[Rfam]
Group II catalytic intron D1-D4-3: a 168-nucleotide RNA sequence from Clostridium botulinum.
RNA sequence: UUUAUGCUUAGAUGAAAUAUGAAUGAAAUCUAUACAGAGUCUAGUCUGAGAGAUAGGAAUUAUAUAGAGUCUUACUAAUGAUGGAGAAGUUUGCUAAGCAAAACAAAGUCCAACACUAUCUAAAUCCUUAGGAAUAAAUAUAAGAGACAUAUGAUAUAAAGGUUAUAU
Numbered sequence: 001u002u003u004a005u006g007c008u009u010a011g012a013u014g015a016a017a018u019a020u021g022a023a024u025g026a027a028a029u030c031u032a033u034a035c036a037g038a039g040u041c042u043a044g045u046c047u048g049a050g051a052g053a054u055a056g057g058a059a060u061u062a063u064a065u066a067g068a069g070u071c072u073u074a075c076u077a078a079u080g081a082u083g084g085a086g087a088a089g090u091u092u093g094c095u096a097a098g099c100a101a102a103a104c105a106a107a108g109u110c111c112a113a114c115a116c117u118a119u120c121u122a123a124a125u126c127c128u129u130a131g132g133a134a135u136a137a138a139u140a141u142a143a144g145a146g147a148c149a150u151a152u153g154a155u156a157u158a159a160a161g162g163u164u165a166u167a168u
Stems, first nucleotide, its partner, number of pairs: 001016005028168002034163002039157002042153002044148004060143006072134001075131004080126002083111003089104004